[Rfam]
RNA sequence: GGAGCCGGCCAGACAGUCGCGUCAUCGGAAACGAUGCCGAGGAAAGUCCGGGCUCCACAGGGCACGGUGCCAGGUAACGCCUGGGCGGCGCGAGCCGACGGAAAGUGCAACAGAAAGAUACCGCCGAACGGCAUCGCGAGAUGCGCGUGGCAAGGGUGAAAUGGUGCGGUAAGAGCGCACCGCGAGUCGGGCAACCGACCGGCACGGCAAACCCCACCGGGAGCAAGGCCAAAUAGGGAAGCGAUGUCGUGGCCCGCGACGCUUCCGGGUAGGCUGCUCGAGCGUAUCGGCGACGGUGCGCCUAGAGGAAUGACUGUCGCGGCGCGCAAGCGUCGAACAGAACCCGGCUUAUCGGCCGACUUCGCCU
Numbered sequence: 001g002g003a004g005c006c007g008g009c010c011a012g013a014c015a016g017u018c019g020c021g022u023c024a025u026c027g028g029a030a031a032c033g034a035u036g037c038c039g040a041g042g043a044a045a046g047u048c049c050g051g052g053c054u055c056c057a058c059a060g061g062g063c064a065c066g067g068u069g070c071c072a073g074g075u076a077a078c079g080c081c082u083g084g085g086c087g088g089c090g091c092g093a094g095c096c097g098a099c100g101g102a103a104a105g106u107g108c109a110a111c112a113g114a115a116a117g118a119u120a121c122c123g124c125c126g127a128a129c130g131g132c133a134u135c136g137c138g139a140g141a142u143g144c145g146c147g148u149g150g151c152a153a154g155g156g157u158g159a160a161a162u163g164g165u166g167c168g169g170u171a172a173g174a175g176c177g178c179a180c181c182g183c184g185a186g187u188c189g190g191g192c193a194a195c196c197g198a199c200c201g202g203c204a205c206g207g208c209a210a211a212c213c214c215c216a217c218c219g220g221g222a223g224c225a226a227g228g229c230c231a232a233a234u235a236g237g238g239a240a241g242c243g244a245u246g247u248c249g250u251g252g253c254c255c256g257c258g259a260c261g262c263u264u265c266c267g268g269g270u271a272g273g274c275u276g277c278u279c280g281a282g283c284g285u286a287u288c289g290g291c292g293a294c295g296g297u298g299c300g301c302c303u304a305g306a307g308g309a310a311u312g313a314c315u316g317u318c319g320c321g322g323c324g325c326g327c328a329a330g331c332g333u334c335g336a337a338c339a340g341a342a343c344c345c346g347g348c349u350u351a352u353c354g355g356c357c358g359a360c361u362u363c364g365c366c367u
Base pairs, nucleotide, nucleotide: 001363002362003361004360006358007357008356009355010354011352012318013317014316015315016314017313018312020039021038023036024035025034026033027032044350045349046348048347049346050345051344052343053223054222055221056220060255061254062253063252065219066218067217068216069215070084071083072082073081074080085099086097087096088095089094100214101213105212106211107208108207121155122154123151124150125149126148129145130144163181164180165179166178167177168176182203183201184200186199187198188197189196190195227275228274229273230272237266238265239264240263241262242261246260247259248258249257250256282301283300284299285298286297287296288295289294
RNA: Bacterial RNase P class A
Organism: Pseudoluteimonas lycopersici